A member of the RNA family "Small nucleolar RNA SNORA32" from Castor canadensis, 121 nucleotides long. Its family is annotated with nucleolus and RNA processing in the Gene Ontology.
RNA sequence: UGGUCAUUACCAAGGCUUUUAGAAUGCAGUUUUCUCAUAUGCUUGGGACAUGACCAUAUAAAAUUUCCCACUAGGUUUUCUAAUGCUGCUUUGUUAGCAAUCAGCCUAUUGGGGAACAAUA
Numbered sequence: 001u002g003g004u005c006a007u008u009a010c011c012a013a014g015g016c017u018u019u020u021a022g023a024a025u026g027c028a029g030u031u032u033u034c035u036c037a038u039a040u041g042c043u044u045g046g047g048a049c050a051u052g053a054c055c056a057u058a059u060a061a062a063a064u065u066u067c068c069c070a071c072u073a074g075g076u077u078u079u080c081u082a083a084u085g086c087u088g089c090u091u092u093g094u095u096a097g098c099a100a101u102c103a104g105c106c107u108a109u110u111g112g113g114g115a116a117c118a119a120u121a
Stems, first nucleotide, its partner, number of pairs: 003054005010047002026042003030039001067113004074106004084099003
Annotation
About the family: ACA32 is a member of the H/ACA class of snoRNA that guide the sites of modification of uridines to pseudouridines. The family has 9 seed sequences and 615 matches in Rfam 15.1. Rfam classes the family as an H/ACA-box small nucleolar RNA.